[Rfam]
This 82-nucleotide RNA from Streptomyces alboflavus belongs to the Rfam family "nrdJ RNA". Pairs were carried over by alignment from the consensus structure, which is taken from published work.
RNA sequence: ACCUGUCGCGGUCGCCCCCAGUGGUGCCCGCGACACAAGACACACACCGUGCUGCGGGAAGAGCGUGGCACUUCAGGGCGUU
Dot-bracket structure: ...((((((((.((((......)))).)))))))).............((((((((.......))))))))...........
Numbered sequence: 001a002c003c004u005g006u007c008g009c010g011g012u013c014g015c016c017c018c019c020a021g022u023g024g025u026g027c028c029c030g031c032g033a034c035a036c037a038a039g040a041c042a043c044a045c046a047c048c049g050u051g052c053u054g055c056g057g058g059a060a061g062a063g064c065g066u067g068g069c070a071c072u073u074c075a076g077g078g079c080g081u082u
Stems, first nucleotide, its partner, number of pairs: 004035008013026004049071008
Lineage of the source: Bacteria > Bacillati > Actinomycetes > Streptomycetaceae > Streptomyces.